The family of this 128-nucleotide RNA sequence from Castor canadensis is "Small nucleolar RNA SNORA61".
[Rfam]
RNA sequence: ACCCUCUGUUUCCCUUUCCCAUCCGAUUUGAACGCUGGUCUUCAUAAUCAUAAAAGGACGGAAAGUGAUGGUGACGCUGGCCUCAGAGCCUUGCAAUGAUACGGCAUGUGCGCUAGUUUCAAACACGA
Numbered sequence: 001a002c003c004c005u006c007u008g009u010u011u012c013c014c015u016u017u018c019c020c021a022u023c024c025g026a027u028u029u030g031a032a033c034g035c036u037g038g039u040c041u042u043c044a045u046a047a048u049c050a051u052a053a054a055a056g057g058a059c060g061g062a063a064a065g066u067g068a069u070g071g072u073g074a075c076g077c078u079g080g081c082c083u084c085a086g087a088g089c090c091u092u093g094c095a096a097u098g099a100u101a102c103g104g105c106a107u108g109u110g111c112g113c114u115a116g117u118u119u120c121a122a123a124c125a126c127g128a
Stems, first nucleotide, its partner, number of pairs: 003060001005058003021045002025040004077116005083110001092106003
Pairs were carried over by alignment from the consensus structure, which was predicted with PFOLD.
It scores 79 bits against the family's covariance model.
It is annotated as an H/ACA-box small nucleolar RNA.
The organism belongs to Castor, within Eukaryota.